[Rfam]
RNA sequence: CGCGCGGUGAACUCCCACGCGGUGCCGGACUCGACGAGCGCCCGGUCCCCGAAGUACUGCCCGUCGGCCAGCACGUUCAGCGUCGCCUCGUCGCCGAAGUGCCCGCGGGCGCGGGUGGUGACCUUGCCGUGCGCGAUGAGGUGCACGGCGUCGGCCGGGGUGCCCUCCUCGACGAUGGUGUCGCCCGCCGCGUACUCGCGCUGGGUGAACCGGCCCGCCAGCGCGGACAGCGCCGCGUCGUCGGUGAGGUCGCGCAGCACGGCCAGUUCGCGCAGCUCGGUCGGCACGAUGUCGAUGUCCGCGCCGGUGUUGGUGAAGGUGACCCGGCCGUCGCCGAGGGUGUAGCUGAGCCUGCGGUUGACCCGGUACACCGCGCCCUGGGCCUCGACCCACGGCAGCAGGCGCAGCAGCCAGCGCGGGCUGAUCUCCUGCAUCUGCGGCACGGACUUGGUCGUGGUGGCCAGGUUCCGCGCGGCCCGGGUGCCCAGGCUCUGCUGGCUCUGCUCGGU
Numbered sequence: 001c002g003c004g005c006g007g008u009g010a011a012c013u014c015c016c017a018c019g020c021g022g023u024g025c026c027g028g029a030c031u032c033g034a035c036g037a038g039c040g041c042c043c044g045g046u047c048c049c050c051g052a053a054g055u056a057c058u059g060c061c062c063g064u065c066g067g068c069c070a071g072c073a074c075g076u077u078c079a080g081c082g083u084c085g086c087c088u089c090g091u092c093g094c095c096g097a098a099g100u101g102c103c104c105g106c107g108g109g110c111g112c113g114g115g116u117g118g119u120g121a122c123c124u125u126g127c128c129g130u131g132c133g134c135g136a137u138g139a140g141g142u143g144c145a146c147g148g149c150g151u152c153g154g155c156c157g158g159g160g161u162g163c164c165c166u167c168c169u170c171g172a173c174g175a176u177g178g179u180g181u182c183g184c185c186c187g188c189c190g191c192g193u194a195c196u197c198g199c200g201c202u203g204g205g206u207g208a209a210c211c212g213g214c215c216c217g218c219c220a221g222c223g224c225g226g227a228c229a230g231c232g233c234c235g236c237g238u239c240g241u242c243g244g245u246g247a248g249g250u251c252g253c254g255c256a257g258c259a260c261g262g263c264c265a266g267u268u269c270g271c272g273c274a275g276c277u278c279g280g281u282c283g284g285c286a287c288g289a290u291g292u293c294g295a296u297g298u299c300c301g302c303g304c305c306g307g308u309g310u311u312g313g314u315g316a317a318g319g320u321g322a323c324c325c326g327g328c329c330g331u332c333g334c335c336g337a338g339g340g341u342g343u344a345g346c347u348g349a350g351c352c353u354g355c356g357g358u359u360g361a362c363c364c365g366g367u368a369c370a371c372c373g374c375g376c377c378c379u380g381g382g383c384c385u386c387g388a389c390c391c392a393c394g395g396c397a398g399c400a401g402g403c404g405c406a407g408c409a410g411c412c413a414g415c416g417c418g419g420g421c422u423g424a425u426c427u428c429c430u431g432c433a434u435c436u437g438c439g440g441c442a443c444g445g446a447c448u449u450g451g452u453c454g455u456g457g458u459g460g461c462c463a464g465g466u467u468c469c470g471c472g473c474g475g476c477c478c479g480g481g482u483g484c485c486c487a488g489g490c491u492c493u494g495c496u497g498g499c500u501c502u503g504c505u506c507g508g509u
Base pairs, nucleotide, nucleotide: 006390007389008388011385014382015381016380021325022324026321027320031316032315035313037311038310039309040308041307042306045305047303049301051299052298054233055232057230058229059228061226062225063224064223065111066110068108075103078101079100083096085094086093117222119220120219122217127212129210130209131206132205134203135202138199140197143196149192150191154189156187157186158185159184161178165174236294237293240290241289242288243287244285245284249282251280253279254278256277257276258275262269329342330341331340332339354376355375356374360372391431392430394428395427397425399423400422401421403418404417405416407415437476438475440473443470444469445468446467447465448464449463450462451461452460477508478507481502485498486497487496488495
RNA: Saccharopolyspora sRNA 350